[Rfam]
RNA: Pseudomonas sRNA P26
RNA sequence: GCUUUAAAGUUUGCAGCCUGACUUUAUAGGCUGAUGGCUGGUGACUUUUUGGUCACCAGCUU
Numbered sequence: 001g002c003u004u005u006a007a008a009g010u011u012u013g014c015a016g017c018c019u020g021a022c023u024u025u026a027u028a029g030g031c032u033g034a035u036g037g038c039u040g041g042u043g044a045c046u047u048u049u050u051g052g053u054c055a056c057c058a059g060c061u062u
Stems, first nucleotide, its partner, number of pairs: 014033005036061010